Rfam assigns this 101-nucleotide sequence from Paenibacillus sp. JCM 10914 to the family "Purine riboswitch aptamer".
The organism belongs to Paenibacillus, within Bacteria.
The match comes from Rfam's covariance-model search (71 bits).

[Rfam]
RNA sequence: UUUUCAUACCAUAUGUUUUCUCGUAUAUGUGCAGGGAUUGGCCUGCAUGUCUCUACCCGAUCACCGGAAAUGAUUGGACUACGGGAUACGGCAGUCGGCAC
Numbered sequence: 001u002u003u004u005c006a007u008a009c010c011a012u013a014u015g016u017u018u019u020c021u022c023g024u025a026u027a028u029g030u031g032c033a034g035g036g037a038u039u040g041g042c043c044u045g046c047a048u049g050u051c052u053c054u055a056c057c058c059g060a061u062c063a064c065c066g067g068a069a070a071u072g073a074u075u076g077g078a079c080u081a082c083g084g085g086a087u088a089c090g091g092c093a094g095u096c097g098g099c100a101c
Stems, first nucleotide, its partner, number of pairs: 019086007029048007057077007